[Rfam]
RNA sequence: AAGUCUUUUAAACUAGUCCAGAGAGACUGGGAAAGAUAUCUCAUAGCUAAUGAAUAGAGUUAUGUAUAGAUAAAAUCCUUAUGCCUCUUUUGGUGUGAGGAUUUUUUUAU
Numbered sequence: 001a002a003g004u005c006u007u008u009u010a011a012a013c014u015a016g017u018c019c020a021g022a023g024a025g026a027c028u029g030g031g032a033a034a035g036a037u038a039u040c041u042c043a044u045a046g047c048u049a050a051u052g053a054a055u056a057g058a059g060u061u062a063u064g065u066a067u068a069g070a071u072a073a074a075a076u077c078c079u080u081a082u083g084c085c086u087c088u089u090u091u092g093g094u095g096u097g098a099g100g101a102u103u104u105u106u107u108u109a110u
Base pairs, nucleotide, nucleotide: 003037004036005035006034007033008032009031013030014029015028016027017026018025043063044062045061046060047059048058072105073104074103075102076101077100078099079098080097081096082095083094084093085092

PyrR binding site: a 110-nucleotide RNA sequence from Clostridioides difficile. It is annotated as a cis-regulatory element. Rfam's curators write: This family represents the PyrR binding site and terminator structure. This RNA structure is found upstream of a variety of genes involved in pyrimidine biosynthesis and transport. The alignment also includes a portion of the antiterminator structure. NCBI's taxonomy places the organism under Bacteria, Bacillati, Bacillota, Peptostreptococcaceae, Clostridioides.